[Rfam]
RNA sequence: GGAGUCGGACAGGCCAUCGUCGCGGACGGCAACGUCCGGGGAGGAAAGUCCGGGCUCCACAGGGCAGGACGCUGGGUAACGCCCAGCGGGAGCGAUCCCGGGAGAGCGCCACAGAAAGCAGACCGCCCGCGCCUUCGGGCGCGGGUAAGGGUGAAACGGUGGGGUAAGAGCCCACCAGUUGCCGCGGUGACGCGGCAAGCUCGGCAAGCCCCGUUCGGAGCAAGACCAAAUAGGAGGGCGCCAAGGCCGGCCCGGCCGUGCCCUCGGGUAGGUUGCUUGAGGCCGCGGGUAAUCGCGGUCCUAGAGGAAUGAUGGCCGCCCCGGAAUUUCCGGGGAACAAAACCCGGCUUAUCGGCCGACUCCCCUU
Numbered sequence: 001g002g003a004g005u006c007g008g009a010c011a012g013g014c015c016a017u018c019g020u021c022g023c024g025g026a027c028g029g030c031a032a033c034g035u036c037c038g039g040g041g042a043g044g045a046a047a048g049u050c051c052g053g054g055c056u057c058c059a060c061a062g063g064g065c066a067g068g069a070c071g072c073u074g075g076g077u078a079a080c081g082c083c084c085a086g087c088g089g090g091a092g093c094g095a096u097c098c099c100g101g102g103a104g105a106g107c108g109c110c111a112c113a114g115a116a117a118g119c120a121g122a123c124c125g126c127c128c129g130c131g132c133c134u135u136c137g138g139g140c141g142c143g144g145g146u147a148a149g150g151g152u153g154a155a156a157c158g159g160u161g162g163g164g165u166a167a168g169a170g171c172c173c174a175c176c177a178g179u180u181g182c183c184g185c186g187g188u189g190a191c192g193c194g195g196c197a198a199g200c201u202c203g204g205c206a207a208g209c210c211c212c213g214u215u216c217g218g219a220g221c222a223a224g225a226c227c228a229a230a231u232a233g234g235a236g237g238g239c240g241c242c243a244a245g246g247c248c249g250g251c252c253c254g255g256c257c258g259u260g261c262c263c264u265c266g267g268g269u270a271g272g273u274u275g276c277u278u279g280a281g282g283c284c285g286c287g288g289g290u291a292a293u294c295g296c297g298g299u300c301c302u303a304g305a306g307g308a309a310u311g312a313u314g315g316c317c318g319c320c321c322c323g324g325a326a327u328u329u330c331c332g333g334g335g336a337a338c339a340a341a342a343c344c345c346g347g348c349u350u351a352u353c354g355g356c357c358g359a360c361u362c363c364c365c366u367u
Stems, first nucleotide, its partner, number of pairs: 001363008010354001011352001012317007020041002023038006046350003050347005055220004062253004067216005072086005087100005101211002106209002108205003123150002125146009158176006178200001179198008224274004234265006245257004281300008